[Rfam]
RNA sequence: CUCCAUGUAUCUUUAAGACCUGAGAGAUGUGGCAGUCUCCUUGAUGGAUGAGCAUGUUCUUGCUUAUUGCCAAAGUUGUCACCAUUUGUUUGGUAUCAGAUUCUGACUUGCACAAGUGAAAUUC
Numbered sequence: 001c002u003c004c005a006u007g008u009a010u011c012u013u014u015a016a017g018a019c020c021u022g023a024g025a026g027a028u029g030u031g032g033c034a035g036u037c038u039c040c041u042u043g044a045u046g047g048a049u050g051a052g053c054a055u056g057u058u059c060u061u062g063c064u065u066a067u068u069g070c071c072a073a074a075g076u077u078g079u080c081a082c083c084a085u086u087u088g089u090u091u092g093g094u095a096u097c098a099g100a101u102u103c104u105g106a107c108u109u110g111c112a113c114a115a116g117u118g119a120a121a122u123u124c
Stems, first nucleotide, its partner, number of pairs: 002048005015041001017039002020035003061121001064118001067115003071110003076099003081094004
The family of this 124-nucleotide RNA sequence from Carlito syrichta is "Small nucleolar RNA SNORA24". It is annotated as an H/ACA-box small nucleolar RNA. Its family is annotated with RNA processing and nucleolus in the Gene Ontology. The base pairs follow the family's consensus structure, which was predicted with RNAfold. About the family: ACA24 is a member of the H/ACA class of snoRNA that guide the sites of modification of uridines to pseudouridines. A search with the family's covariance model found it, with a score of 92 bits.